[Rfam]
RNA sequence: CAGUGAAAAAGGCAAAUCACAGGAAACUGUGAGACGCAAAGCCAUGGGCCUGUACCGACUAUUCGGAUGGCAGCCGGUUGCCACA
Numbered sequence: 001c002a003g004u005g006a007a008a009a010a011g012g013c014a015a016a017u018c019a020c021a022g023g024a025a026a027c028u029g030u031g032a033g034a035c036g037c038a039a040a041g042c043c044a045u046g047g048g049c050c051u052g053u054a055c056c057g058a059c060u061a062u063u064c065g066g067a068u069g070g071c072a073g074c075c076g077g078u079u080g081c082c083a084c085a
Base pairs, nucleotide, nucleotide: 012037013036017032018031019030020029021028022027040079041078042077043076046075047074048071049070050069055066056065057064058063
RNA: c-di-GMP-I riboswitch aptamer